[Rfam]
RNA: uup RNA
RNA sequence: AGAGAAUCAACUCUGUACAAUCCAAACCGAUGAAACAUUGUGCAGAGU
Numbered sequence: 001a002g003a004g005a006a007u008c009a010a011c012u013c014u015g016u017a018c019a020a021u022c023c024a025a026a027c028c029g030a031u032g033a034a035a036c037a038u039u040g041u042g043c044a045g046a047g048u
Stems, first nucleotide, its partner, number of pairs: 011047005017041003